[Rfam]
A member of the RNA family "Mu-gpT-DE RNA", 53 nucleotides long.
RNA sequence: UUCUGACGAAUACAUACUGUAUUCGACACUAGCCACGACAGGAGAUUGACAUG
Numbered sequence: 001u002u003c004u005g006a007c008g009a010a011u012a013c014a015u016a017c018u019g020u021a022u023u024c025g026a027c028a029c030u031a032g033c034c035a036c037g038a039c040a041g042g043a044g045a046u047u048g049a050c051a052u053g
Base pairs, nucleotide, nucleotide: 002042003041004040005039007025008024009023010022011021

Rfam's curators put it in the seed alignment.